The record is an 86-nucleotide RNA sequence from Streptomyces oceani, which matches "sodF sRNA" in Rfam. The family has 6 seed sequences and 336 matches in Rfam 15.1. Gene Ontology terms of the family: mRNA binding, negative regulation of translation and regulation of mRNA stability. By type it is a small RNA.
RNA sequence: GUGUCCUGCUCGUGAUCGUCUUCUCACCGCUCACCGGCAGGCAGUAAGGGAGGGUUCCCGCGGACAGCCACCCGCGGGAACCCUCC
Numbered sequence: 001g002u003g004u005c006c007u008g009c010u011c012g013u014g015a016u017c018g019u020c021u022u023c024u025c026a027c028c029g030c031u032c033a034c035c036g037g038c039a040g041g042c043a044g045u046a047a048g049g050g051a052g053g054g055u056u057c058c059c060g061c062g063g064a065c066a067g068c069c070a071c072c073c074g075c076g077g078g079a080a081c082c083c084u085c086c
Stems, first nucleotide, its partner, number of pairs: 002043002005041006012034004018028001049086015